[Rfam]
RNA sequence: GAGCCGCUGGAUUCGGGGCCGAGACACUGUCUGAGGGGUUUACGAGUCUCACAGUGAACCGGUCUCUUUUUCAGUUGCUCC
Numbered sequence: 001g002a003g004c005c006g007c008u009g010g011a012u013u014c015g016g017g018g019c020c021g022a023g024a025c026a027c028u029g030u031c032u033g034a035g036g037g038g039u040u041u042a043c044g045a046g047u048c049u050c051a052c053a054g055u056g057a058a059c060c061g062g063u064c065u066c067u068u069u070u071u072c073a074g075u076u077g078c079u080c081c
Base pairs, nucleotide, nucleotide: 006075007074008073009072010071015066016065017064018063019062020061021060025056026055027054028053029052030051033050034049035048

This 81-nucleotide RNA sequence from Ornithorhynchus anatinus belongs to the Rfam family "mir-128 microRNA precursor family".
Its family is annotated with RISC complex and miRNA-mediated post-transcriptional gene silencing in the Gene Ontology.
The source organism's lineage runs through Eukaryota, Vertebrata, Dipnotetrapodomorpha, Monotremata and Ornithorhynchus.